[Rfam]
Shown here is a 109-nucleotide RNA from Propionibacterium cyclohexanicum, a member of the family "TPP riboswitch aptamer (THI element)". Vitamin B(1) in its active form thiamin pyrophosphate (TPP) is an essential coenzyme that is synthesised by coupling of pyrimidine and thiazole moieties in bacteria.
RNA sequence: GAGGUAGCACACGGGAGUCCGGUACACCGGGCUGAGAGGAGAGCAGGAGCUCUCGACCGUCGAACCUGAUCCGGAUCAUGCCGGCGCAGGGAGGCCUCUUGCGGGAAAU
Numbered sequence: 001g002a003g004g005u006a007g008c009a010c011a012c013g014g015g016a017g018u019c020c021g022g023u024a025c026a027c028c029g030g031g032c033u034g035a036g037a038g039g040a041g042a043g044c045a046g047g048a049g050c051u052c053u054c055g056a057c058c059g060u061c062g063a064a065c066c067u068g069a070u071c072c073g074g075a076u077c078a079u080g081c082c083g084g085c086g087c088a089g090g091g092a093g094g095c096c097u098c099u100u101g102c103g104g105g106a107a108a109u
Stems, first nucleotide, its partner, number of pairs: 006097002010093001011060004017032005039054005065090004071084004